[Rfam]
RNA sequence: UGCCCUGGCAAUGGACAAAGAGACACCUUGGUGGUGGUGUUCUUAGAUCAGUCAGAGGCAGAGAGAUGCCAGCCCUUUGUUCAUCCUAGUGUGAUGUCUGACUUGGUGGCCAAAAGUGAUUUAUGCCUAGGACUUAUAA
Numbered sequence: 001u002g003c004c005c006u007g008g009c010a011a012u013g014g015a016c017a018a019a020g021a022g023a024c025a026c027c028u029u030g031g032u033g034g035u036g037g038u039g040u041u042c043u044u045a046g047a048u049c050a051g052u053c054a055g056a057g058g059c060a061g062a063g064a065g066a067u068g069c070c071a072g073c074c075c076u077u078u079g080u081u082c083a084u085c086c087u088a089g090u091g092u093g094a095u096g097u098c099u100g101a102c103u104u105g106g107u108g109g110c111c112a113a114a115a116g117u118g119a120u121u122u123a124u125g126c127c128u129a130g131g132a133c134u135u136a137u138a139a
Stems, first nucleotide, its partner, number of pairs: 001060004006055001008053001012050003018044003022038001024036004079133004093127001095125001099123003103119003107115001
This 139-nucleotide sequence from Rattus norvegicus belongs to the Rfam family "Small nucleolar RNA SNORA48". A search with the family's covariance model found it, with a score of 61 bits. The literature on the family includes a 1997 paper in J Mol Biol by Ofengand and Bakin, "Mapping to nucleotide resolution of pseudouridine residues in large subunit ribosomal RNAs from representative eukaryotes, prokaryotes, archaebacteria, mitochondria and chloroplasts". About the family: The snoRNA ACA 48 has been identified to guide pseudouridylation of the residue U3797 in the 28S rRNA subunit. Lineage of the source: Eukaryota > Opisthokonta > Craniata > Mammalia > Rattus.